The record is a 331-nucleotide RNA sequence from Oceanibacterium hippocampi, which matches "Alphaproteobacteria transfer-messenger RNA" in Rfam. Lineage of the source: Bacteria > Alphaproteobacteria > Sneathiellales > Sneathiellaceae > Oceanibacterium. Bacterial tmRNA, also known as 10Sa RNA or SsrA, is named for its dual tRNA and mRNA-like properties. It is annotated as a non-coding RNA gene. The family's consensus secondary structure is taken from published work.

[Rfam]
RNA sequence: GCACUUUGCAAUCCCGCUUUUACCGCCUAUAUUAGGGGUGUCGGGCAACCGACUAUGGCGAUAAACGCUCUAUGGAAUAGGCGUAGCGGACCCGGGGGCGGUACCCGGCGCCUCCACCACAACGACAUCGACGGGGUCAUCCCGGUGUCGUUCUGCUGGGGGCGAAACAGGCUCGACGCGCGCAGUAAAGAUACAGUUUUCGCCCGGCAUGAUACCACCGUUAUCGGGUCUUUUUCACAAAUGCCAACGACAAUGAGGCAUUUGCUGUUGCUGCCUAAUUAGGCAGCAAUAACGGGGUUCGGAGGGCACCUGGCAACAGAAGCCCUCCACU
Numbered sequence: 001g002c003a004c005u006u007u008g009c010a011a012u013c014c015c016g017c018u019u020u021u022a023c024c025g026c027c028u029a030u031a032u033u034a035g036g037g038g039u040g041u042c043g044g045g046c047a048a049c050c051g052a053c054u055a056u057g058g059c060g061a062u063a064a065a066c067g068c069u070c071u072a073u074g075g076a077a078u079a080g081g082c083g084u085a086g087c088g089g090a091c092c093c094g095g096g097g098g099c100g101g102u103a104c105c106c107g108g109c110g111c112c113u114c115c116a117c118c119a120c121a122a123c124g125a126c127a128u129c130g131a132c133g134g135g136g137u138c139a140u141c142c143c144g145g146u147g148u149c150g151u152u153c154u155g156c157u158g159g160g161g162g163c164g165a166a167a168c169a170g171g172c173u174c175g176a177c178g179c180g181c182g183c184a185g186u187a188a189a190g191a192u193a194c195a196g197u198u199u200u201c202g203c204c205c206g207g208c209a210u211g212a213u214a215c216c217a218c219c220g221u222u223a224u225c226g227g228g229u230c231u232u233u234u235u236c237a238c239a240a241a242u243g244c245c246a247a248c249g250a251c252a253a254u255g256a257g258g259c260a261u262u263u264g265c266u267g268u269u270g271c272u273g274c275c276u277a278a279u280u281a282g283g284c285a286g287c288a289a290u291a292a293c294g295g296g297g298u299u300c301g302g303a304g305g306g307c308a309c310c311u312g313g314c315a316a317c318a319g320a321a322g323c324c325c326u327c328c329a330c331u
Base pairs, nucleotide, nucleotide: 040053041052042051043050044049057204058203059202060201061200067197068196069195071193072192073191082182083181084180086179087178088177092108093107094106095105096104109164110163111162112161113160114159115158205220206219207218211230212229215227216226295311296310297309298308301328302327303326304325305324306323